[Rfam]
Nucleotides: 043
Stems, first nucleotide, its partner, number of pairs: 002019007032043004
Number, partner (000 for none) and nucleotide at each position: 001000g002019u003018c004017u005016g006015g007014g008013g009000a010000c011000g012000a013008c014007c015006u016005c017004a018003g019002g020000a021000a022000c023000u024000u025000c026000a027000g028000g029000u030000u031000u032043g033042g034041g035040g036000a037000c038000g039000a040035c041034c042033u043032c